[Rfam]
RNA sequence: GUGCAAUGAUGUAUAUUUGUCAACACAUCAUUCUGAGAGAAAAUUGUGAUGACUUCUGUGACUGAGCACA
Numbered sequence: 001g002u003g004c005a006a007u008g009a010u011g012u013a014u015a016u017u018u019g020u021c022a023a024c025a026c027a028u029c030a031u032u033c034u035g036a037g038a039g040a041a042a043a044u045u046g047u048g049a050u051g052a053c054u055u056c057u058g059u060g061a062c063u064g065a066g067c068a069c070a
Base pairs, nucleotide, nucleotide: 001069002068003067004066
Dot-bracket structure: ((((.............................................................)))).